[Rfam]
RNA sequence: GAUGAAAUCACGCUUAAUUUCCGGUUUACACGAAACCGGAAAGCGGGGGAACCAAUGAAAUUGGGGCGAAUCAUUCCAUGUAGGGAACCAUCUUUCCCGAGCCCGACAGCUAACCUCGUCAGCAGUAGAUGGGUCAAAU
Numbered sequence: 001g002a003u004g005a006a007a008u009c010a011c012g013c014u015u016a017a018u019u020u021c022c023g024g025u026u027u028a029c030a031c032g033a034a035a036c037c038g039g040a041a042a043g044c045g046g047g048g049g050a051a052c053c054a055a056u057g058a059a060a061u062u063g064g065g066g067c068g069a070a071u072c073a074u075u076c077c078a079u080g081u082a083g084g085g086a087a088c089c090a091u092c093u094u095u096c097c098c099g100a101g102c103c104c105g106a107c108a109g110c111u112a113a114c115c116u117c118g119u120c121a122g123c124a125g126u127a128g129a130u131g132g133g134u135c136a137a138a139u
Stems, first nucleotide, its partner, number of pairs: 012123003018042010043119006053063002064104003072080003083098004
c-di-AMP riboswitch aptamer (ydaO/yuaA leader): a 139-nucleotide RNA from Paenibacillus validus. It scores 77 bits against the family's covariance model. The literature on the family includes a 2004 paper in Proc Natl Acad Sci U S A by Barrick et al., "New RNA motifs suggest an expanded scope for riboswitches in bacterial genetic control".